Overview: Shown here is a 99-nucleotide sequence from Treponema vincentii, a member of the family "TD-2 RNA". It is annotated as a small RNA. The base pairs follow the family's consensus structure, which is taken from published work.
Nucleotides: 099
Stems, first nucleotide, its partner, number of pairs: 001018006034060003038057008062095014
Number, partner (000 for none) and nucleotide at each position: 001018a002017g003016c004015g005014g006013c007000a008000c009000g010000g011000a012000u013006g014005c015004c016003g017002c018001u019000g020000g021000u022000u023000u024000c025000a026000a027000g028000c029000a030000g031000c032000a033000g034060c035059g036058a037000c038057g039056u040055u041054u042053u043052g044051c045050c046000g047000a048000a049000u050045g051044g052043c053042a054041a055040a056039a057038c058036u059035c060034g061000u062095g063094u064093u065092u066091a067090c068089c069088g070087a071086u072085a073084g074083a075082c076000a077000u078000g079000g080000a081000c082075g083074u084073c085072u086071a087070u088069c089068g090067g091066u092065a093064a094063a095062c096000g097000a098000a099000a